RNA: Eukaryotic large subunit ribosomal RNA, nucleotides 747 to 1049
RNA sequence: GAGUCUAACUUGCACGCGAGUCACUGGGUGGAAAACCCACGGGCGCAAUGAAAGUGAGGACGCAGUCCCUGGUACGAACCCCCCGCAAGGGGGGCGCAGUAUCCGCCGGCCACCCGUUCUCAUACGGACUGGUGGACUGAGCGCGAGCGUGCAGGCUAGGACCCGAAAGAUGGUGAACUAUACCUGGGUAAGGCGAAGCCAGAGGAAACUCUGGUGGAGGCUUGUAGCGGUUCUGACGUGCAAAUCGAUCGUAGAACCUGGGUAUAGGGGCGAAAGACUAAUCGAACCAUCUAGUAGCUGGUU
Numbered sequence: 001g002a003g004u005c006u007a008a009c010u011u012g013c014a015c016g017c018g019a020g021u022c023a024c025u026g027g028g029u030g031g032a033a034a035a036c037c038c039a040c041g042g043g044c045g046c047a048a049u050g051a052a053a054g055u056g057a058g059g060a061c062g063c064a065g066u067c068c069c070u071g072g073u074a075c076g077a078a079c080c081c082c083c084c085g086c087a088a089g090g091g092g093g094g095c096g097c098a099g100u101a102u103c104c105g106c107c108g109g110c111c112a113c114c115c116g117u118u119c120u121c122a123u124a125c126g127g128a129c130u131g132g133u134g135g136a137c138u139g140a141g142c143g144c145g146a147g148c149g150u151g152c153a154g155g156c157u158a159g160g161a162c163c164c165g166a167a168a169g170a171u172g173g174u175g176a177a178c179u180a181u182a183c184c185u186g187g188g189u190a191a192g193g194c195g196a197a198g199c200c201a202g203a204g205g206a207a208a209c210u211c212u213g214g215u216g217g218a219g220g221c222u223u224g225u226a227g228c229g230g231u232u233c234u235g236a237c238g239u240g241c242a243a244a245u246c247g248a249u250c251g252u253a254g255a256a257c258c259u260g261g262g263u264a265u266a267g268g269g270g271c272g273a274a275a276g277a278c279u280a281a282u283c284g285a286a287c288c289a290u291c292u293a294g295u296a297g298c299u300g301g302u303u
Stems, first nucleotide, its partner, number of pairs: 005159003009155009020044003025039005048055002071103005079094004105142002107139003110135003116129004162301002165298001169291006178267011189255001191223004198215007227252004232248002235246002269279002